[Rfam]
About this RNA:
Small nucleolar RNA R44/J54/Z268 family: a 74-nucleotide RNA from Kingdonia uniflora. Its Rfam clan is "SNORD74 clan". Rfam classes the family as a C/D-box small nucleolar RNA. The family's consensus secondary structure was predicted with PFOLD. The match comes from Rfam's covariance-model search (49 bits). The family has 29 seed sequences and 1,168 matches in Rfam 15.1.
Nucleotides: 074
Base pairs, nucleotide, nucleotide: 002073003072004071005070006069
Number, partner (000 for none) and nucleotide at each position: 001000a002073u003072u004071g005070c006069a007000a008000g009000u010000g011000u012000u013000g014000a015000u016000a017000a018000a019000a020000a021000g022000a023000c024000a025000g026000g027000g028000g029000c030000a031000u032000c033000a034000g035000c036000a037000c038000u039000c040000c041000u042000u043000c044000u045000g046000g047000a048000g049000a050000a051000u052000g053000u054000u055000g056000a057000c058000u059000a060000u061000c062000u063000c064000u065000c066000u067000a068000a069006u070005g071004c072003a073002a074000u